[Rfam]
RNA sequence: GGUUUGUAGGCAGUGUAGUUAGCUGAUUGUACCCAGUAUCCCACAAUCACUAAAUUCACUGCCAUCAAAAC
Numbered sequence: 001g002g003u004u005u006g007u008a009g010g011c012a013g014u015g016u017a018g019u020u021a022g023c024u025g026a027u028u029g030u031a032c033c034c035a036g037u038a039u040c041c042c043a044c045a046a047u048c049a050c051u052a053a054a055u056u057c058a059c060u061g062c063c064a065u066c067a068a069a070a071c
Base pairs, nucleotide, nucleotide: 003069004068005067006066009063010062012060013059014058015057017055019053020052021051022050024049025048026047027046028045029044030043
Dot-bracket structure: ..((((..((.((((.(.((((.(((((((............))))))))))).).)))).))..))))..
Shown here is a 71-nucleotide sequence from Callipepla squamata, a member of the family "mir-34 microRNA precursor family". Rfam's curators write: Human mir-34a was discovered computationally and later experimentally verified. The mature sequence is excised from the 5' arm of the hairpin. The match comes from Rfam's covariance-model search (64 bits). The family has 113 seed sequences and 2,256 matches in Rfam 15.1. The family's consensus secondary structure was predicted with RNAalifold.